[Rfam]
RNA sequence: ACACCCCCUUUCACUUUGCCAAUUGGACUAAUGUCUUCAUUGGUCAUUCAAGUGGGGCAAAGGAAAUAACCUUUUAAAACUCAGGCAAACUGGGUGUCUGUCUUGUAACCUCAUUGUAAAAAAAA
Numbered sequence: 001a002c003a004c005c006c007c008c009u010u011u012c013a014c015u016u017u018g019c020c021a022a023u024u025g026g027a028c029u030a031a032u033g034u035c036u037u038c039a040u041u042g043g044u045c046a047u048u049c050a051a052g053u054g055g056g057g058c059a060a061a062g063g064a065a066a067u068a069a070c071c072u073u074u075u076a077a078a079a080c081u082c083a084g085g086c087a088a089a090c091u092g093g094g095u096g097u098c099u100g101u102c103u104u105g106u107a108a109c110c111u112c113a114u115u116g117u118a119a120a121a122a123a124a125a
Stems, first nucleotide, its partner, number of pairs: 032059005040051004071116001074113001082105001083103005089097002

Notes
This 125-nucleotide RNA sequence from Muntiacus reevesi belongs to the Rfam family "Small nucleolar RNA SNORA27". Its Rfam clan is "SNORA27 clan". Rfam classes the family as an H/ACA-box small nucleolar RNA.